A member of the RNA family "mir-1253 microRNA precursor family" from Homo sapiens, 94 nucleotides long.
RNA sequence: GCAAGAGAUAGAAUCCAAAAGAGAAGAAGAUCAGCCUGCAGAUGUGGACUGCUAAAUGCAGGCUGAUCUUCUCCCCUUUGGGAUUCUCUUAUGA
Numbered sequence: 001g002c003a004a005g006a007g008a009u010a011g012a013a014u015c016c017a018a019a020a021g022a023g024a025a026g027a028a029g030a031u032c033a034g035c036c037u038g039c040a041g042a043u044g045u046g047g048a049c050u051g052c053u054a055a056a057u058g059c060a061g062g063c064u065g066a067u068c069u070u071c072u073c074c075c076c077u078u079u080g081g082g083a084u085u086c087u088c089u090u091a092u093g094a
Stems, first nucleotide, its partner, number of pairs: 002093002005090004011086006018079004023074001025072016045054003

Rfam links the family to the GO terms miRNA-mediated post-transcriptional gene silencing and RISC complex.